[Rfam]
RNA: miR-430 microRNA precursor family
RNA sequence: AUGAUAACCGUUACAAAAACACUAACUUUGUUCCAAUUGUAGUAAGUGCUUUUGUUGGGGUAGUGUUG
Numbered sequence: 001a002u003g004a005u006a007a008c009c010g011u012u013a014c015a016a017a018a019a020c021a022c023u024a025a026c027u028u029u030g031u032u033c034c035a036a037u038u039g040u041a042g043u044a045a046g047u048g049c050u051u052u053u054g055u056u057g058g059g060g061u062a063g064u065g066u067u068g
Base pairs, nucleotide, nucleotide: 004064005063007061008060009059011057013055014054015053016052017051018050020048021047022046023045025043026042027041